[Rfam]
RNA: Small nucleolar RNA SNORA73 family
RNA sequence: UCAACGUGGAUAAUCUCAAUGGAUUGACACCCAUUGAGCUCUGUCCAAGUGGUUUGGAGCCAACUGAUGAUCCUUUCUCUCUCUUGAGAUUAAAGGGUUGUCAUUAUGAGGUGCAGUCCCUCCACAACGUUGUAUAUAAACUACUGCCGCUGUCUUACCUAAGAUAAGCUGAGCAGGCAAUGGCAUAUUCCUGUUCCUUCCAUAGCUCCUAGUGGGCAUUAAUUGGAGAGAGAAACCAUGCUAGUGACACUA
Numbered sequence: 001u002c003a004a005c006g007u008g009g010a011u012a013a014u015c016u017c018a019a020u021g022g023a024u025u026g027a028c029a030c031c032c033a034u035u036g037a038g039c040u041c042u043g044u045c046c047a048a049g050u051g052g053u054u055u056g057g058a059g060c061c062a063a064c065u066g067a068u069g070a071u072c073c074u075u076u077c078u079c080u081c082u083c084u085u086g087a088g089a090u091u092a093a094a095g096g097g098u099u100g101u102c103a104u105u106a107u108g109a110g111g112u113g114c115a116g117u118c119c120c121u122c123c124a125c126a127a128c129g130u131u132g133u134a135u136a137u138a139a140a141c142u143a144c145u146g147c148c149g150c151u152g153u154c155u156u157a158c159c160u161a162a163g164a165u166a167a168g169c170u171g172a173g174c175a176g177g178c179a180a181u182g183g184c185a186u187a188u189u190c191c192u193g194u195u196c197c198u199u200c201c202a203u204a205g206c207u208c209c210u211a212g213u214g215g216g217c218a219u220u221a222a223u224u225g226g227a228g229a230g231a232g233a234a235a236c237c238a239u240g241c242u243a244g245u246g247a248c249a250c251u252a
Stems, first nucleotide, its partner, number of pairs: 002132006008046005015038003019034004049125004056119003059114001181243006196230001198228004205217002208215002